A member of the RNA family "tRNA" from Nannocystis exedens, 71 nucleotides long. The base pairs follow the family's consensus structure, which is taken from published work. A search with the family's covariance model found it, with a score of 53 bits. Taxonomically the source falls in Nannocystis (Bacteria, Myxococcota, Polyangia, Nannocystaceae).
[Rfam]
RNA sequence: GGUCCCGUGUCCGAGUGGUCAGGUGCCCGCCUGCAAAGCGGGUCAGUCGGGUUCGAAUCCCGACGGGACCU
Numbered sequence: 001g002g003u004c005c006c007g008u009g010u011c012c013g014a015g016u017g018g019u020c021a022g023g024u025g026c027c028c029g030c031c032u033g034c035a036a037a038g039c040g041g042g043u044c045a046g047u048c049g050g051g052u053u054c055g056a057a058u059c060c061c062g063a064c065g066g067g068a069c070c071u
Base pairs, nucleotide, nucleotide: 001070002069003068004067005066006065007064011023012022026042027041028040029039030038047063048062049061050060051059